Shown here is a 93-nucleotide RNA sequence from Actibacterium pelagium, a member of the family "Rhodo-rpoB RNA". Rfam classes the family as a cis-regulatory element. Pairs were carried over by alignment from the consensus structure, which is taken from published work.
RNA sequence: GGUUCGGGAGCAGCCGGUGGGACGGACUGCAGGAAUAGGACCUGACCCCCUUAUUUGUUGGCGGCGCAUGACCGAGGCCCGGCGGUUCAUGCA
Numbered sequence: 001g002g003u004u005c006g007g008g009a010g011c012a013g014c015c016g017g018u019g020g021g022a023c024g025g026a027c028u029g030c031a032g033g034a035a036u037a038g039g040a041c042c043u044g045a046c047c048c049c050c051u052u053a054u055u056u057g058u059u060g061g062c063g064g065c066g067c068a069u070g071a072c073c074g075a076g077g078c079c080c081g082g083c084g085g086u087u088c089a090u091g092c093a
Stems, first nucleotide, its partner, number of pairs: 001042005010030004014025003066092004070087005